[Rfam]
RNA sequence: CGGGGCCGGGACGCUGUCUGAGAGUUCUAUGAUUCUCACAGUGAACCGGUCUCUUU
Numbered sequence: 001c002g003g004g005g006c007c008g009g010g011a012c013g014c015u016g017u018c019u020g021a022g023a024g025u026u027c028u029a030u031g032a033u034u035c036u037c038a039c040a041g042u043g044a045a046c047c048g049g050u051c052u053c054u055u056u
Base pairs, nucleotide, nucleotide: 002053003052004051005050006049007048008047012043013042014041015040016039017038020037021036022035